RNA sequence: AAGAUUUUUUGACUUCGGUAUCGCUGUAUCUCAUCGCCAUUCGUACUUCUCCUUUUACCUCGGCUAAUUUAGCCGGGGUUUUU
Numbered sequence: 001a002a003g004a005u006u007u008u009u010u011g012a013c014u015u016c017g018g019u020a021u022c023g024c025u026g027u028a029u030c031u032c033a034u035c036g037c038c039a040u041u042c043g044u045a046c047u048u049c050u051c052c053u054u055u056u057a058c059c060u061c062g063g064c065u066a067a068u069u070u071a072g073c074c075g076g077g078g079u080u081u082u083u
Base pairs, nucleotide, nucleotide: 057079058078059077060076061075062074063073064072